[Rfam]
The record is a 369-nucleotide RNA from Streptococcus criceti, which matches "Bacterial RNase P class B" in Rfam. By type it is a ribozyme. The organism belongs to Streptococcus, within Bacteria. Its Rfam clan is "RNaseP clan". The family's consensus secondary structure is taken from published work.

RNA sequence: AUUUUUGGAUAAUCGCAUGUCACUUUUUAGUUGAUAUGAGGAAAGUCCAUGCUAGCACUGGCUGUGAUGCCAGUAGUGUUUGUGCUAGGUGAAACAAUAAGCCUAGGCAUGUCUAUUUGACAUGACGGCGGACGACGGAGCUAAGUUCUUGGAUAUGUUCCCAGUCCUGAAAGUGCCACAGUGACGGAGUCCUUGAGGAAACUUAAGGAGUGGAACGCGGUAAACCCCUCAAGCUAGCAACCCAAAUUUUGGUCGGGGCACGAGAUGGCUGGAAUCCGAACGGACCAUCUUGACUGCGUAAGCAGUAGACAGAUGAUUAUCGAAGGAGACAGCACCUAGUGUCUCUGGAACAAAACAUGGCUUAUAGAA
Numbered sequence: 001a002u003u004u005u006u007g008g009a010u011a012a013u014c015g016c017a018u019g020u021c022a023c024u025u026u027u028u029a030g031u032u033g034a035u036a037u038g039a040g041g042a043a044a045g046u047c048c049a050u051g052c053u054a055g056c057a058c059u060g061g062c063u064g065u066g067a068u069g070c071c072a073g074u075a076g077u078g079u080u081u082g083u084g085c086u087a088g089g090u091g092a093a094a095c096a097a098u099a100a101g102c103c104u105a106g107g108c109a110u111g112u113c114u115a116u117u118u119g120a121c122a123u124g125a126c127g128g129c130g131g132a133c134g135a136c137g138g139a140g141c142u143a144a145g146u147u148c149u150u151g152g153a154u155a156u157g158u159u160c161c162c163a164g165u166c167c168u169g170a171a172a173g174u175g176c177c178a179c180a181g182u183g184a185c186g187g188a189g190u191c192c193u194u195g196a197g198g199a200a201a202c203u204u205a206a207g208g209a210g211u212g213g214a215a216c217g218c219g220g221u222a223a224a225c226c227c228c229u230c231a232a233g234c235u236a237g238c239a240a241c242c243c244a245a246a247u248u249u250u251g252g253u254c255g256g257g258g259c260a261c262g263a264g265a266u267g268g269c270u271g272g273a274a275u276c277c278g279a280a281c282g283g284a285c286c287a288u289c290u291u292g293a294c295u296g297c298g299u300a301a302g303c304a305g306u307a308g309a310c311a312g313a314u315g316a317u318u319a320u321c322g323a324a325g326g327a328g329a330c331a332g333c334a335c336c337u338a339g340u341g342u343c344u345c346u347g348g349a350a351c352a353a354a355a356c357a358u359g360g361c362u363u364a365u366a367g368a369a
Stems, first nucleotide, its partner, number of pairs: 004369003007365001008321007016038006043363003047360005052237005057074006080232003084228001085106006107126001108124006127227002130167004138160004145154003173225002175221003190209008241257003261292007293306005325346007333339001
Rfam's curators write: Ribonuclease P (RNase P) is a ubiquitous endoribonuclease, found in archaea, bacteria and eukarya as well as chloroplasts and mitochondria. The literature on the family includes a 1998 paper in Annu Rev Biochem by Frank and Pace, "Ribonuclease P: unity and diversity in a tRNA processing ribozyme".